[Rfam]
RNA sequence: AAACACAGAAGAGGUGCAUUAACCAGGUAGUAGAUUCGAGGGCACAUUCCCGACGACGGUCUAUCAGGGGGUUAACUGCCGAGGAGUAAUCUGGAUUUGUGGCCAGUUUGCUUCGGUUCUAGAAGUUGAAUCUUCGGGACUGUCACCUGUUAUAGGUGGAGAGCUUCUGGCAGA
Number, nucleotide and partner (000 for none) at each position: 001a000002a000003a000004c000005a000006c169007a168008g167009a166010a165011g164012a000013g000014g000015u000016g079017c078018a077019u000020u075021a000022a073023c000024c071025a000026g000027g000028u000029a000030g064031u063032a062033g061034a060035u059036u058037c000038g000039a000040g000041g000042g000043c000044a000045c000046a000047u000048u000049c000050c000051c000052g000053a000054c000055g000056a000057c000058g036059g035060u034061c033062u032063a031064u030065c000066a000067g000068g000069g000070g000071g024072u000073u022074a000075a020076c000077u018078g017079c016080c000081g000082a000083g114084g113085a112086g111087u110088a109089a108090u000091c106092u105093g104094g103095a000096u000097u000098u000099g000100u000101g000102g000103c094104c093105a092106g091107u000108u089109u088110g087111c086112u085113u084114c083115g141116g140117u139118u138119c137120u136121a000122g135123a134124a133125g132126u000127u000128g000129a000130a000131u000132c125133u124134u123135c122136g120137g119138g118139a117140c116141u115142g000143u159144c158145a157146c156147c155148u154149g153150u000151u000152a000153u149154a148155g147156g146157u145158g144159g143160a000161g000162a000163g000164c011165u010166u009167c008168u007169g006170g000171c000172a000173g000174a000
Background: The record is a 174-nucleotide RNA from Pseudoalteromonas piratica, which matches "Lysine riboswitch aptamer" in Rfam. Its family is annotated with lysine biosynthetic process in the Gene Ontology. On this family, see Mandal et al., Cell 2003: "Riboswitches Control Fundamental Biochemical Pathways in Bacillus subtilis and Other Bacteria". The organism belongs to Pseudoalteromonas, within Bacteria.